[Rfam]
RNA sequence: GCCGAUGAGGAAAUCCAAAAUUUGCUAGGUGCAGUGGAGCUGAGACCCUGUUUUCAGGGAGAACCCCUUGGCAGAAACUGCAAUUUCUAUGAAGCUUAUGGAUAUACUGAGGC
Numbered sequence: 001g002c003c004g005a006u007g008a009g010g011a012a013a014u015c016c017a018a019a020a021u022u023u024g025c026u027a028g029g030u031g032c033a034g035u036g037g038a039g040c041u042g043a044g045a046c047c048c049u050g051u052u053u054u055c056a057g058g059g060a061g062a063a064c065c066c067c068u069u070g071g072c073a074g075a076a077a078c079u080g081c082a083a084u085u086u087c088u089a090u091g092a093a094g095c096u097u098a099u100g101g102a103u104a105u106a107c108u109g110a111g112g113c
Stems, first nucleotide, its partner, number of pairs: 001113003046059005
RNA: Small nucleolar RNA Z278